[Rfam]
RNA sequence: UUCCACACGGUAGAUCUGUCUCGUAUAUAUUCAGGAAUAGGGCCUGAACGUUUCUACCCGGCCACCGUAAAUGGCCGGACUACGAGGAUAUGGGUCGCCGGC
Numbered sequence: 001u002u003c004c005a006c007a008c009g010g011u012a013g014a015u016c017u018g019u020c021u022c023g024u025a026u027a028u029a030u031u032c033a034g035g036a037a038u039a040g041g042g043c044c045u046g047a048a049c050g051u052u053u054c055u056a057c058c059c060g061g062c063c064a065c066c067g068u069a070a071a072u073g074g075c076c077g078g079a080c081u082a083c084g085a086g087g088a089u090a091u092g093g094g095u096c097g098c099c100g101g102c
Base pairs, nucleotide, nucleotide: 019087020086021085022084023083024082025081030048031047032046033045034044035043058078059077060076061075062074063073064072

The family of this 102-nucleotide RNA sequence from Melghirimyces profundicolus is "Purine riboswitch aptamer". Its family is annotated with purine nucleobase biosynthetic process in the Gene Ontology.